[Rfam]
RNA sequence: AGGCUGUGAUGACUGAUUUCGUUUCUCGAUCCUGAAUAUCAUCAUGUUAGCUCUGAUACGGACCCAAGUGAGCUAAUUUUUCAUUUGUUGACAGUAUUUGUGCGUGUCUGAGCCUU
Numbered sequence: 001a002g003g004c005u006g007u008g009a010u011g012a013c014u015g016a017u018u019u020c021g022u023u024u025c026u027c028g029a030u031c032c033u034g035a036a037u038a039u040c041a042u043c044a045u046g047u048u049a050g051c052u053c054u055g056a057u058a059c060g061g062a063c064c065c066a067a068g069u070g071a072g073c074u075a076a077u078u079u080u081u082c083a084u085u086u087g088u089u090g091a092c093a094g095u096a097u098u099u100g101u102g103c104g105u106g107u108c109u110g111a112g113c114c115u116u
Stems, first nucleotide, its partner, number of pairs: 001115004
The family of this 116-nucleotide RNA from Salix viminalis is "small nucleolar RNA snoR126". Gene Ontology terms of the family: nucleolus and RNA processing. On this family, see Chen and Wu, Nucleic Acids Res 2009: "Mining small RNA sequencing data: a new approach to identify small nucleolar RNAs in Arabidopsis". The organism belongs to Salix, within Eukaryota. The family has 4 seed sequences and 423 matches in Rfam 15.1. By type it is a C/D-box small nucleolar RNA. The base pairs follow the family's consensus structure, which was predicted with RNAalifold.